RNA sequence: CCUGAUCGCACCAGGGCAGGAGUGGGGGACCCACAGUUCGAUGCCGCACCCAGGUGCGGCUCGGGGUGAAGCCGGCGCCGACUUUCUCGGGCAGGCCCGGCGGAGGACCUUUCCACCUCCAACCCGACAGCUCACCUCACAGG
Numbered sequence: 001c002c003u004g005a006u007c008g009c010a011c012c013a014g015g016g017c018a019g020g021a022g023u024g025g026g027g028g029a030c031c032c033a034c035a036g037u038u039c040g041a042u043g044c045c046g047c048a049c050c051c052a053g054g055u056g057c058g059g060c061u062c063g064g065g066g067u068g069a070a071g072c073c074g075g076c077g078c079c080g081a082c083u084u085u086c087u088c089g090g091g092c093a094g095g096c097c098c099g100g101c102g103g104a105g106g107a108c109c110u111u112u113c114c115a116c117c118u119c120c121a122a123c124c125c126g127a128c129a130g131c132u133c134a135c136c137u138c139a140c141a142g143g
Base pairs, nucleotide, nucleotide: 001143002142006021007020022140023139024138025137026136027135032063064125065124066123072100073099074098075097103119104118105117106116

Rfam assigns this 143-nucleotide RNA sequence from Nocardioides panaciterrulae to the family "c-di-AMP riboswitch aptamer (ydaO/yuaA leader)". Rfam describes the family as follows. This family represents a conserved RNA structure found upstream of the ydaO and yuaA genes in Bacillus subtilis and related genes in other bacteria. The ydaO/yuaA element is thought to act as a genetic 'off' switch for the ydaO and yuaA genes in its native state. It is believed that the element may be triggered during osmotic shock leading to activation of ydaO, a predicted amino acid transporter gene, and members of the yuaA-yubG operon which code for KtrA and KtrB K+ transporters. The literature on the family includes a 2004 paper in Proc Natl Acad Sci U S A by Barrick et al., "New RNA motifs suggest an expanded scope for riboswitches in bacterial genetic control".